A member of the RNA family "Alphaproteobacterial sRNA ar7" from Rhizobium sp. RU20A, 147 nucleotides long. It scores 96 bits against the family's covariance model.

RNA sequence: CAACGGCGCCGCAAACCCGCCGUCGUCUGGUACCGGCCUGUCCCCCGCCGCACCGGAUGCUGGACAAAGGCCUCAUCCCCCCUCUCCGGGCCUUUGUCCGUUCUUAACGAAACCGCCAUGGGCUCCGCCACCCCAUGGCGGUUUUCG
Numbered sequence: 001c002a003a004c005g006g007c008g009c010c011g012c013a014a015a016c017c018c019g020c021c022g023u024c025g026u027c028u029g030g031u032a033c034c035g036g037c038c039u040g041u042c043c044c045c046c047g048c049c050g051c052a053c054c055g056g057a058u059g060c061u062g063g064a065c066a067a068a069g070g071c072c073u074c075a076u077c078c079c080c081c082c083u084c085u086c087c088g089g090g091c092c093u094u095u096g097u098c099c100g101u102u103c104u105u106a107a108c109g110a111a112a113c114c115g116c117c118a119u120g121g122g123c124u125c126c127g128c129c130a131c132c133c134c135a136u137g138g139c140g141g142u143u144u145u146c147g
Base pairs, nucleotide, nucleotide: 026057027056028055029054030053031052035049036048037047062099063098064097065096066095067094068093069092070091071090072089111143113141114140115139116138117137118136119135120134121133122132124130